[Rfam]
RNA sequence: CCAUAACGACAGGGGAGCCGAAUAGGCUGAGAGUGUCCCGGUGGACAGACCCUCGCACCUGAACCAGGUAAUGCUGGCGCAGGAAGUCGAGUCUCUUACUUG
Numbered sequence: 001c002c003a004u005a006a007c008g009a010c011a012g013g014g015g016a017g018c019c020g021a022a023u024a025g026g027c028u029g030a031g032a033g034u035g036u037c038c039c040g041g042u043g044g045a046c047a048g049a050c051c052c053u054c055g056c057a058c059c060u061g062a063a064c065c066a067g068g069u070a071a072u073g074c075u076g077g078c079g080c081a082g083g084a085a086g087u088c089g090a091g092u093c094u095c096u097u098a099c100u101u102g
Stems, first nucleotide, its partner, number of pairs: 007089004011053004017027003034047005058083004064077004

Shown here is a 102-nucleotide RNA from Varibaculum cambriense, a member of the family "TPP riboswitch aptamer (THI element)". It scores 66 bits against the family's covariance model. Taxonomically the source falls in Varibaculum cambriense (Bacteria, Bacillati, Actinomycetota, Actinomycetales).